A member of the RNA family "tRNA" from Acipenser fulvescens, 70 nucleotides long. About the family: Transfer RNA (tRNA) molecules are approximately 80 nucleotides in length. Their secondary structure includes four short double-helical elements and three loops (D, anti-codon, and T loops). Further hydrogen bonds mediate the characteristic L-shaped molecular structure. tRNAs have two regions of fundamental functional importance: the anti-codon, which is responsible for specific mRNA codon recognition, and the 3' end, to which the tRNAs corresponding amino acid is attached (by aminoacyl-tRNA synthetases). tRNAs cope with the degeneracy of the genetic code in two manners: having more than one tRNA (with a specific anti-codon) for a particular amino acid; and 'wobble' base-pairing, i.e. permitting non-standard base-pairing at the 3rd anti-codon position.
[Rfam]
Nucleotides: 070
Base pairs, nucleotide, nucleotide: 001069002068003067004066005065006064007063010023011022012021013020025041026040027039028038029037046062047061048060049059050058
Number, partner (000 for none) and nucleotide at each position: 001069c002068a003067g004066a005065g006064a007063a008000u009000a010023g011022u012021u013020u014000a015000a016000u017000g018000u019000a020013g021012a022011a023010u024000c025041u026040u027039a028038g029037c030000u031000u032000u033000g034000g035000g036000a037029g038028u039027u040026a041025a042000g043000g044000g045000u046062g047061a048060g049059a050058g051000u052000u053000g054000a055000a056000u057000u058050c059049u060048c061047u062046u063007u064006u065005c066004u067003c068002u069001g070000a